Notes
Rfam assigns this 78-nucleotide sequence from Leptidea sinapis to the family "mir-184 microRNA precursor family".
RNA sequence: ACAAAGCCGUACCCUUGUCAUUCUUCUGGCCUGUGUGAUAUACGACUGGACGGAGAACUGAUAAGGGCACGGUAUGUA
Numbered sequence: 001a002c003a004a005a006g007c008c009g010u011a012c013c014c015u016u017g018u019c020a021u022u023c024u025u026c027u028g029g030c031c032u033g034u035g036u037g038a039u040a041u042a043c044g045a046c047u048g049g050a051c052g053g054a055g056a057a058c059u060g061a062u063a064a065g066g067g068c069a070c071g072g073u074a075u076g077u078a
Base pairs, nucleotide, nucleotide: 012067013066014065015064016063017062018061019060020059021057022056023055024054025053026052030049031048
A reference for the family is Chen et al. (2005), "The developmental miRNA profiles of zebrafish as determined by small RNA cloning", Genes Dev.